[Rfam]
RNA sequence: AUGUGACCCGUGGACUUCCCUUUGUCAUCCUAUGCCUGAACAUAUAUAAAGAGGGCUGGGAAGGCAAAGGGACGUUCAACUGUCAUCACU
Numbered sequence: 001a002u003g004u005g006a007c008c009c010g011u012g013g014a015c016u017u018c019c020c021u022u023u024g025u026c027a028u029c030c031u032a033u034g035c036c037u038g039a040a041c042a043u044a045u046a047u048a049a050a051g052a053g054g055g056c057u058g059g060g061a062a063g064g065c066a067a068a069g070g071g072a073c074g075u076u077c078a079a080c081u082g083u084c085a086u087c088a089c090u
Stems, first nucleotide, its partner, number of pairs: 017072006024065002028061005034056004